[Rfam]
RNA sequence: ACAACUAAAACGCUCAAUUCCCGAGAAGGGGAGCGGGGGACCCAAUCCGUUGGGGCGAAUGGUCCGCUUGGACCUAGGGCAAGCUCUUCAUGCCCGAGCCCGACAGCUAACCCCGUAAGCGUGGCGAGAAGAGCU
Numbered sequence: 001a002c003a004a005c006u007a008a009a010a011c012g013c014u015c016a017a018u019u020c021c022c023g024a025g026a027a028g029g030g031g032a033g034c035g036g037g038g039g040a041c042c043c044a045a046u047c048c049g050u051u052g053g054g055g056c057g058a059a060u061g062g063u064c065c066g067c068u069u070g071g072a073c074c075u076a077g078g079g080c081a082a083g084c085u086c087u088u089c090a091u092g093c094c095c096g097a098g099c100c101c102g103a104c105a106g107c108u109a110a111c112c113c114c115g116u117a118a119g120c121g122u123g124g125c126g127a128g129a130a131g132a133g134c135u
Base pairs, nucleotide, nucleotide: 011121012120013119014118018032019031020030033116034115035114036113037112038111043052044051053101054100055099061074062073063072064071077095078094079093080092
Description
The record is a 135-nucleotide RNA sequence, which matches "c-di-AMP riboswitch aptamer (ydaO/yuaA leader)" in Rfam. Its family is annotated with regulation of gene expression and cyclic-di-AMP binding in the Gene Ontology.